[Rfam]
Nucleotides: 118
Stems, first nucleotide, its partner, number of pairs: 007042003011038007047073002050071005082113011
Number, partner (000 for none) and nucleotide at each position: 001000c002000c003000a004000c005000u006000c007042c008041c009040c010000g011038c012037g013036g014035g015034a016033c017032a018000g019000u020000u021000c022000c023000u024000c025000c026000u027000c028000c029000c030000u031000c032017u033016g034015u035014c036013c037012c038011g039000u040009g041008g042007g043000a044000u045000a046000u047073g048072c049000c050071g051070c052069c053068a054067g055000c056000a057000c058000c059000u060000c061000c062000u063000c064000c065000c066000g067054c068053u069052g070051g071050c072048g073047c074000g075000a076000c077000a078000u079000a080000g081000g082113a083112a084111a085110a086109g087108g088107c089106c090105g091104g092103c093000a094000c095000c096000u097000c098000c099000u100000c101000c102000c103092g104091c105090c106089g107088g108087c109086c110085u111084u112083u113082u114000u115000c116000u117000u118000u

The family of this 118-nucleotide sequence from Kumtagia ephedrae is "Alphaproteobacterial ar14". Rfam describes the family as follows. Smr14C2 was renamed NfeR1 (Nodule Formation Efficiency RNA) highly expressed in salt stress and during the symbiotic interaction on legume roots. The pairing is the family consensus, mapped onto this sequence. For this family Rfam cites "A survey of sRNA families in alpha-proteobacteria" (del Val et al., RNA Biol, 2012). It scores 75 bits against the family's covariance model.